[Rfam]
RNA sequence: ACCCUCACCUCGGGGAGCCUUUAUCGGCUGAGAUGCGAAAGCGAACCCGUCGAACCUGAACCGGAUCAUACCGGCGGAGGGAAGGUGCAUGGGUUCUCC
Numbered sequence: 001a002c003c004c005u006c007a008c009c010u011c012g013g014g015g016a017g018c019c020u021u022u023a024u025c026g027g028c029u030g031a032g033a034u035g036c037g038a039a040a041g042c043g044a045a046c047c048c049g050u051c052g053a054a055c056c057u058g059a060a061c062c063g064g065a066u067c068a069u070a071c072c073g074g075c076g077g078a079g080g081g082a083a084g085g086u087g088c089a090u091g092g093g094u095u096c097u098c099c
Stems, first nucleotide, its partner, number of pairs: 006087005011049004017028003035042002055080003061074004
This 99-nucleotide RNA from Pseudorhodobacter sp. PARRP1 belongs to the Rfam family "TPP riboswitch aptamer (THI element)".
Pairs were carried over by alignment from the consensus structure, which is taken from published work.
Rfam describes the family as follows. Vitamin B(1) in its active form thiamin pyrophosphate (TPP) is an essential coenzyme that is synthesised by coupling of pyrimidine and thiazole moieties in bacteria. The previously detected thiamin-regulatory element, thi box was extended, resulting in a new, highly conserved RNA secondary structure, the THI element, which is widely distributed in eubacteria and also occurs in some archaea. Analysis of operon structures identified a large number of new candidate thiamin-regulated genes, mostly transporters, in various prokaryotic organisms.